[Rfam]
RNA sequence: CCCACCGGAGGUGGCGGUGAGGGCGACGGUGCGCAGGUCGACGGCGCUGCUGGGCGGCACCGACGCGGUGCAAGAAGGCCGGCCCCAGGUGGUCGACGGGGUGCUGUGGUUCCGGCCGGCGAC
Numbered sequence: 001c002c003c004a005c006c007g008g009a010g011g012u013g014g015c016g017g018u019g020a021g022g023g024c025g026a027c028g029g030u031g032c033g034c035a036g037g038u039c040g041a042c043g044g045c046g047c048u049g050c051u052g053g054g055c056g057g058c059a060c061c062g063a064c065g066c067g068g069u070g071c072a073a074g075a076a077g078g079c080c081g082g083c084c085c086c087a088g089g090u091g092g093u094c095g096a097c098g099g100g101g102u103g104c105u106g107u108g109g110u111u112c113c114g115g116c117c118g119g120c121g122a123c
Stems, first nucleotide, its partner, number of pairs: 005119004
RNA: Small nucleolar RNA Z206